Overview
Yersinia sRNA 155(RyfD): a 140-nucleotide sequence from Acerihabitans arboris. Taxonomically the source falls in Acerihabitans (Bacteria, Pseudomonadota, Gammaproteobacteria, Pectobacteriaceae). The pairing is the family consensus, mapped onto this sequence. Rfam classes the family as a small RNA. The sRNA was identified by and is confirmed to have a stable secondary structure by using genome-wide structure probing at different temperatures.
RNA sequence: CAAGACGGUCCAUGGCGGAUAGCAGGUAUCUCCCAACUAUAUUGGCGAAAUAUCCUUGAAUUUUAAAUAAACGACCUUAUUUAAUCUCCAGUAGCAAUUUUGACCAAUAUGGGAGGAGUUAUGCGCUUGGAUCGUCUUAC
Number, nucleotide and partner (000 for none) at each position: 001c000002a138003a137004g136005a135006c134007g133008g132009u131010c130011c129012a128013u000014g127015g126016c125017g124018g000019a122020u000021a120022g119023c118024a000025g000026g000027u000028a000029u039030c000031u000032c000033c000034c000035a000036a000037c000038u000039a029040u000041a000042u000043u000044g000045g000046c000047g000048a000049a000050a000051u000052a000053u000054c000055c000056u067057u066058g000059a064060a000061u000062u000063u000064u059065a000066a057067a056068u000069a000070a081071a080072c000073g078074a000075c000076c000077u000078u073079a000080u071081u070082u000083a000084a000085u116086c115087u114088c113089c112090a000091g110092u109093a108094g000095c000096a000097a000098u000099u000100u000101u000102g000103a000104c000105c000106a000107a000108u093109a092110u091111g000112g089113g088114a087115g086116g085117a000118g023119u022120u021121a000122u019123g000124c017125g016126c015127u014128u012129g011130g010131a009132u008133c007134g006135u005136c004137u003138u002139a000140c000